[Rfam]
Shown here is a 126-nucleotide RNA sequence from Holdemania filiformis, a member of the family "Ribosomal protein L10 leader". This family is a putative r-protein leader autoregulatory structure found in B. subtilis and other low-GC Gram-positive bacteria. It is located in the 5' untranslated regions of mRNAs encoding ribosomal proteins L10 and L12 (rplJ-rplL). A Rho-independent transcription terminator structure that is probably involved in regulation is included at the 3' end. It scores 71 bits against the family's covariance model. The organism belongs to Holdemania, within Bacteria.
RNA sequence: UAGUUUGUUAUCAAUAUACCAUAGACAGCAACGGCCUAACGGCUUAAUCAGGUUGCCGAGGUAGGAAGAUCAACUUUGAACUUUCAAAACCCGUGCUGUCUUGAGUGCGGGUUUUUAUAUUCAGGU
Dot-bracket structure: ...........................(((((.(((....)))........))))).................................((((((((......))))))))...............